Record summary: Rfam assigns this 77-nucleotide sequence from Allobosea sp. RAC05 to the family "Makes More Granules Regulator RNA (mmgR)". Lineage of the source: Bacteria > Pseudomonadati > Hyphomicrobiales > Alloboseaceae > Allobosea. By type it is a small RNA.
RNA sequence: CUUCGUUGCCCUCCUUGGGCGUUUCCUCCCUAGACUUGGGCCGCCACGAAAGUGUGCGGCCCUUUUUUCUGUUGCGA
Numbered sequence: 001c002u003u004c005g006u007u008g009c010c011c012u013c014c015u016u017g018g019g020c021g022u023u024u025c026c027u028c029c030c031u032a033g034a035c036u037u038g039g040g041c042c043g044c045c046a047c048g049a050a051a052g053u054g055u056g057c058g059g060c061c062c063u064u065u066u067u068u069c070u071g072u073u074g075c076g077a
Stems, first nucleotide, its partner, number of pairs: 008020004038062007